[Rfam]
RNA sequence: AGAAUGCACAUUAAUUAUCCCUGGAGCCAUGGGAUAAAAAAAAAAACAAGUUAGCACACCUUAUAAUGGUUCUAAUAUGAUUACUAACCUAUGACUCUUAUACCAAUUGAAGGGAAAAACCC
Numbered sequence: 001a002g003a004a005u006g007c008a009c010a011u012u013a014a015u016u017a018u019c020c021c022u023g024g025a026g027c028c029a030u031g032g033g034a035u036a037a038a039a040a041a042a043a044a045a046a047c048a049a050g051u052u053a054g055c056a057c058a059c060c061u062u063a064u065a066a067u068g069g070u071u072c073u074a075a076u077a078u079g080a081u082u083a084c085u086a087a088c089c090u091a092u093g094a095c096u097c098u099u100a101u102a103c104c105a106a107u108u109g110a111a112g113g114g115a116a117a118a119a120c121c122c
Base pairs, nucleotide, nucleotide: 009112011110012109013108014107015106016105023098024097025096026095028093029092030091031090032089033088040076044071045070047068048067052063053062054061
Record summary: Rfam assigns this 122-nucleotide sequence from Vitis rotundifolia to the family "MIR845_2 microRNA precursor family". Lineage of the source: Eukaryota > Euphyllophyta > Spermatophyta > Gunneridae > Vitis. Pairs were carried over by alignment from the consensus structure, which was predicted with WAR.